[Rfam]
RNA sequence: GUCUUGCGUUAGGGAUUGCAAUGAAAAUCCUUUUACGAGGAACGAGAAAAAGAUUGCAAUGUAAAGCCCGGCCGAAG
Numbered sequence: 001g002u003c004u005u006g007c008g009u010u011a012g013g014g015a016u017u018g019c020a021a022u023g024a025a026a027a028u029c030c031u032u033u034u035a036c037g038a039g040g041a042a043c044g045a046g047a048a049a050a051a052g053a054u055u056g057c058a059a060u061g062u063a064a065a066g067c068c069c070g071g072c073c074g075a076a077g
Stems, first nucleotide, its partner, number of pairs: 012069003016065002021060002026055004032050003036046001